[Rfam]
This 97-nucleotide sequence from Takifugu rubripes belongs to the Rfam family "Z30 small nucleolar RNA". It is one of the family's seed sequences. Gene Ontology terms of the family: nucleolus and RNA processing. The family's RNA type in Rfam is C/D-box small nucleolar RNA. The literature on the family includes a 2002 paper in Mol Cell Biol by Galardi et al., "Purified box C/D snoRNPs are able to reproduce site-specific 2'-O-methylation of target RNA in vitro".

RNA sequence: CUGCAAGGAUGAUUGUUGAUGUGACUGACUUGGCACUGCUGGCCUCCGGGUCAGCUUUGGCCAGGAAAUGACAGCUGUUAAUCUUCUCUCUGAGCAG
Numbered sequence: 001c002u003g004c005a006a007g008g009a010u011g012a013u014u015g016u017u018g019a020u021g022u023g024a025c026u027g028a029c030u031u032g033g034c035a036c037u038g039c040u041g042g043c044c045u046c047c048g049g050g051u052c053a054g055c056u057u058u059g060g061c062c063a064g065g066a067a068a069u070g071a072c073a074g075c076u077g078u079u080a081a082u083c084u085u086c087u088c089u090c091u092g093a094g095c096a097g
Base pairs, nucleotide, nucleotide: 003095004094038055039054040053041052